Annotation: The family of this 77-nucleotide RNA from Citrobacter freundii is "SymR antitoxin". It is one of the family's seed sequences. Its family is annotated with mRNA binding in the Gene Ontology.
[Rfam]
Nucleotides: 077
Base pairs, nucleotide, nucleotide: 001039002038003037004036005035006034007033008032012028013027014026015025016024041074042073043072045070046069047068048067049066050065051064052063053062054061055060
Number, partner (000 for none) and nucleotide at each position: 001039a002038g003037u004036c005035a006034u007033g008032a009000u010000u011000g012028c013027u014026a015025u016024u017000c018000c019000u020000u021000c022000g023000a024016a025015a026014u027013a028012g029000g030000g031000a032008u033007u034006g035005u036004g037003a038002u039001u040000a041074g042073c043072g044000a045070g046069g047068c048067g049066c050065u051064c052063g053062u054061g055060u056000u057000g058000c059000a060055g061054c062053a063052c064051g065050g066049g067048c068047g069046u070045c071000u072043u073042g074041c075000g076000a077000u